[Rfam]
RNA sequence: GGACGAGGACGACCUCGCCCGCUCAUGGGAUGCGACAUCCGGGACGGCCCGG
Numbered sequence: 001g002g003a004c005g006a007g008g009a010c011g012a013c014c015u016c017g018c019c020c021g022c023u024c025a026u027g028g029g030a031u032g033c034g035a036c037a038u039c040c041g042g043g044a045c046g047g048c049c050c051g052g
Base pairs, nucleotide, nucleotide: 001020002019004017005016006015007014008013039052040051041050042049043048
Annotation
Shown here is a 52-nucleotide sequence from Rubellimicrobium mesophilum, a member of the family "Guanidine-II riboswitch aptamer (mini-ykkC)". About the family: Simpler in structure and has fewer highly conserved nucleotide positions than the ykkC-yxkD leader. The literature on the family includes a 2017 paper in Cell Chem Biol by Huang et al., "The Structure of the Guanidine-II Riboswitch". Pairs were carried over by alignment from the consensus structure, which is taken from published work. Rfam links the family to the GO term regulation of gene expression.